[Rfam]
RNA: Streptomyces RNA 6925
Nucleotides: 130
Base pairs, nucleotide, nucleotide: 004045005044008041009040010039011038012037013036015034016033019030020029047087049085050084054083055082059078060077061076062075063074064073065072066071096127097126098125099124100123101122102121103120104119105118106117107116108115109114
Number, partner (000 for none) and nucleotide at each position: 001000g002000c003000a004045g005044g006000a007000u008041c009040c010039g011038u012037u013036c014000c015034g016033g017000u018000g019030c020029u021000g022000g023000u024000g025000g026000a027000a028000a029020g030019g031000g032000a033016c034015c035000a036013g037012a038011a039010c040009g041008g042000a043000u044005u045004c046000g047087u048000u049085g050084g051000g052000u053000g054083a055082u056000c057000u058000c059078c060077g061076c062075g063074c064073c065072c066071u067000u068000c069000c070000c071066g072065g073064g074063g075062c076061g077060c078059g079000g080000g081000u082055g083054u084050c085049c086000u087047a088000c089000a090000g091000c092000c093000g094000u095000u096127c097126g098125g099124c100123g101122u102121c103120u104119g105118g106117g107116a108115g109114u110000u111000c112000c113000c114109g115108c116107u117106c118105u119104c120103a121102g122101g123100c124099g125098c126097c127096g128000u129000c130000g